The family of this 123-nucleotide RNA from Cellvibrio japonicus is "Ribosomal S15 leader". Its family is annotated with regulation of translation, ncRNA-mediated in the Gene Ontology. NCBI's taxonomy places the organism under Bacteria, Gammaproteobacteria, Cellvibrionales, Cellvibrio, Cellvibrio japonicus. The family is grouped with related families in Rfam's "Ribosomal Protein S15 Leader clan". Rfam's curators write: The E. coli Ribosomal S15 gene 5' UTR can form two alternative structures. One that is a series of three hairpins, The other includes a pseudoknot. For this family Rfam cites "Pseudoknot and translational control in the expression of the S15 ribosomal protein" (Benard et al., Biochimie, 1996). It is annotated as a cis-regulatory leader.

RNA sequence: UAGCCCGGCUGUAAAUAUGCGCGGCCGAGGCUGUAAUCAUCUGCAUAUUAUGAAGAGGAAAACAUCAUGGCACUGAGUGCUGCUGAAAAAGCUGGAAUCGUAGCGAAAUACCAAAAAGUUGCU
Numbered sequence: 001u002a003g004c005c006c007g008g009c010u011g012u013a014a015a016u017a018u019g020c021g022c023g024g025c026c027g028a029g030g031c032u033g034u035a036a037u038c039a040u041c042u043g044c045a046u047a048u049u050a051u052g053a054a055g056a057g058g059a060a061a062a063c064a065u066c067a068u069g070g071c072a073c074u075g076a077g078u079g080c081u082g083c084u085g086a087a088a089a090a091g092c093u094g095g096a097a098u099c100g101u102a103g104c105g106a107a108a109u110a111c112c113a114a115a116a117a118g119u120u121g122c123u
Base pairs, nucleotide, nucleotide: 007026008025009024010023011022012021048077049076054074055073057071